Rfam assigns this 126-nucleotide sequence from Ornithorhynchus anatinus to the family "Small nucleolar RNA SNORA40".
[Rfam]
RNA sequence: AGCACUUCUCUUGUUCUUGUUCAAUCUGGGGACGAGGACUUAGAAAAAGUGCUCAGAACAAACCCUCUUUUGCAACCCACAGUUCAUGGCACAGUAUGAGCUGUGGUACAUAUAAGGAGGGACACC
Dot-bracket structure: (((((((.(...((((((((....(....).)))))))).....).)))))))..........(((.(((((.....((((((((((........)))))))))).......))))).))).....
Numbered sequence: 001a002g003c004a005c006u007u008c009u010c011u012u013g014u015u016c017u018u019g020u021u022c023a024a025u026c027u028g029g030g031g032a033c034g035a036g037g038a039c040u041u042a043g044a045a046a047a048a049g050u051g052c053u054c055a056g057a058a059c060a061a062a063c064c065c066u067c068u069u070u071u072g073c074a075a076c077c078c079a080c081a082g083u084u085c086a087u088g089g090c091a092c093a094g095u096a097u098g099a100g101c102u103g104u105g106g107u108a109c110a111u112a113u114a115a116g117g118a119g120g121g122a123c124a125c126c
Stems, first nucleotide, its partner, number of pairs: 001053007009045001013039008025030001064121003068117005078105010

The family has 28 seed sequences and 2,550 matches in Rfam 15.1. Rfam's curators write: The snoRNA ACA 40 belongs to the H/ACA family of snoRNAs and guides the pseudouridylation of 28S rRNA subunit at position U4565. NB This family has a high threshold value to exclude a large number of closely related sequences that do not appear to have conserved H and ACA boxes, and may be pseudogenes. The family's consensus secondary structure was predicted with RNAalifold.